[Rfam]
RNA sequence: GAGUGGGGUCCAAUGGCGAGGCUAACCCAUUAUUGGGGAAGCCGUAGCGAAAGCAACAAGCCCGCAGUUUUUCGAGGGGCGGCGUGGGUUCGCGCGGAGUCAUUGGGCCACGACCCGGAACCAGGUGAUCUAGGCGUGGGCAGAUCGAAGCGUAACGAAAGUUACGUGGAGGAUCGUUAGCGGUACUGAUAUGCAAAUCGUUCGCGUGACCUGUGUCUAGGGGUGAAAGUCCAAUCGAACUUGGAAACAGCUGGUU
Numbered sequence: 001g002a003g004u005g006g007g008g009u010c011c012a013a014u015g016g017c018g019a020g021g022c023u024a025a026c027c028c029a030u031u032a033u034u035g036g037g038g039a040a041g042c043c044g045u046a047g048c049g050a051a052a053g054c055a056a057c058a059a060g061c062c063c064g065c066a067g068u069u070u071u072u073c074g075a076g077g078g079g080c081g082g083c084g085u086g087g088g089u090u091c092g093c094g095c096g097g098a099g100u101c102a103u104u105g106g107g108c109c110a111c112g113a114c115c116c117g118g119a120a121c122c123a124g125g126u127g128a129u130c131u132a133g134g135c136g137u138g139g140g141c142a143g144a145u146c147g148a149a150g151c152g153u154a155a156c157g158a159a160a161g162u163u164a165c166g167u168g169g170a171g172g173a174u175c176g177u178u179a180g181c182g183g184u185a186c187u188g189a190u191a192u193g194c195a196a197a198u199c200g201u202u203c204g205c206g207u208g209a210c211c212u213g214u215g216u217c218u219a220g221g222g223g224u225g226a227a228a229g230u231c232c233a234a235u236c237g238a239a240c241u242u243g244g245a246a247a248c249a250g251c252u253g254g255u256u
Stems, first nucleotide, its partner, number of pairs: 005111001007109011020043004026037004047054002060080004067073001083094004114254002117251001121244006130220011141208001143175004150167007180205004185201002188199002222232002
A member of the RNA family "Archaeal large subunit ribosomal RNA" from Methanocella paludicola, 256 nucleotides of a longer RNA. The family's consensus secondary structure is taken from published work. Its family is annotated with ribosome and structural constituent of ribosome in the Gene Ontology.